[Rfam]
RNA sequence: CUGUGCUUUCAGCUUCUUUACAGUGCUGCCUUGUAGCAUCUAUGUCAAGCAGCAUUGUACAGGGCUAUGAAGGAGCAG
Numbered sequence: 001c002u003g004u005g006c007u008u009u010c011a012g013c014u015u016c017u018u019u020a021c022a023g024u025g026c027u028g029c030c031u032u033g034u035a036g037c038a039u040c041u042a043u044g045u046c047a048a049g050c051a052g053c054a055u056u057g058u059a060c061a062g063g064g065c066u067a068u069g070a071a072g073g074a075g076c077a078g
Base pairs, nucleotide, nucleotide: 014064015063016062017061019059020058021057022056023055024054025053026052027051028050030049031048032047033046